The record is a 105-nucleotide RNA from Lupinus albus, which matches "Small nucleolar RNA snoR99" in Rfam.
A reference for the family is Marker et al. (2002), "Experimental RNomics: identification of 140 candidates for small non-messenger RNAs in the plant Arabidopsis thaliana", Curr Biol.
By type it is an H/ACA-box small nucleolar RNA.
A search with the family's covariance model found it, with a score of 68 bits.
NCBI's taxonomy places the organism under Eukaryota, Euphyllophyta, eudicotyledons, Pentapetalae, Lupinus.

RNA sequence: GUACUUUUUGGGAUGAACAAGUCGCAUAUAUUCAAUUUAUUCAUCUGAUCACUUUGCCAGCUUUGUUUUUCAGUAUACUGCUUGUCAUUAUAGGGUGGAACCUUC
Numbered sequence: 001g002u003a004c005u006u007u008u009u010g011g012g013a014u015g016a017a018c019a020a021g022u023c024g025c026a027u028a029u030a031u032u033c034a035a036u037u038u039a040u041u042c043a044u045c046u047g048a049u050c051a052c053u054u055u056g057c058c059a060g061c062u063u064u065g066u067u068u069u070u071c072a073g074u075a076u077a078c079u080g081c082u083u084g085u086c087a088u089u090a091u092a093g094g095g096u097g098g099a100a101c102c103u104u105c
Stems, first nucleotide, its partner, number of pairs: 040099006056085002059082003